Shown here is a 47-nucleotide sequence from Glycosmis pentaphylla, a member of the family "Plastid-rpl16 group II-D1 intron".
Rfam's curators put it in the seed alignment.
On this family, see Richter et al., Plant Commun 2023: "Retrograde signaling in plants: A critical review focusing on the GUN pathway and beyond".
Plastid-rpl16 is a non-coding RNA (ncRNA) recognised in plastids.
Pairs were carried over by alignment from the consensus structure, which was predicted with LocARNA.
Its family is annotated with Group II intron splicing in the Gene Ontology.
RNA sequence: AAGAGCCCCGAGCCAAUAAAAACUGAGAAAAUUGACUUAAGAAAAAA
Numbered sequence: 001a002a003g004a005g006c007c008c009c010g011a012g013c014c015a016a017u018a019a020a021a022a023c024u025g026a027g028a029a030a031a032u033u034g035a036c037u038u039a040a041g042a043a044a045a046a047a
Base pairs, nucleotide, nucleotide: 007041010038011037012036014034015033016032017031